[Rfam]
RNA: Group II catalytic intron D1-D4-3
RNA sequence: GUGCGGGUGACCGUUCGUCUGAAGGAAGCCCGUUUGCAAAUCCACGAGCCGACGAACAGGAAUCGUAUAGGAGGCCGAGUGCCUGGGUGAGGUGGCCAAGCGCACCGAAACCCACCAAAGGAGGGCUUACGGUAAAUACGGCGGUUGCGGGGAGACAGAUCGUGUU
Numbered sequence: 001g002u003g004c005g006g007g008u009g010a011c012c013g014u015u016c017g018u019c020u021g022a023a024g025g026a027a028g029c030c031c032g033u034u035u036g037c038a039a040a041u042c043c044a045c046g047a048g049c050c051g052a053c054g055a056a057c058a059g060g061a062a063u064c065g066u067a068u069a070g071g072a073g074g075c076c077g078a079g080u081g082c083c084u085g086g087g088u089g090a091g092g093u094g095g096c097c098a099a100g101c102g103c104a105c106c107g108a109a110a111c112c113c114a115c116c117a118a119a120g121g122a123g124g125g126c127u128u129a130c131g132g133u134a135a136a137u138a139c140g141g142c143g144g145u146u147g148c149g150g151g152g153a154g155a156c157a158g159a160u161c162g163u164g165u166u
Base pairs, nucleotide, nucleotide: 001016003014004013005012006011028166030164037158041153042152043151045149046148047146048145049144050143051142063141064140065139066138067137068136074133075132076131079128081126082125084124085113086112087111088110091106092105093104094103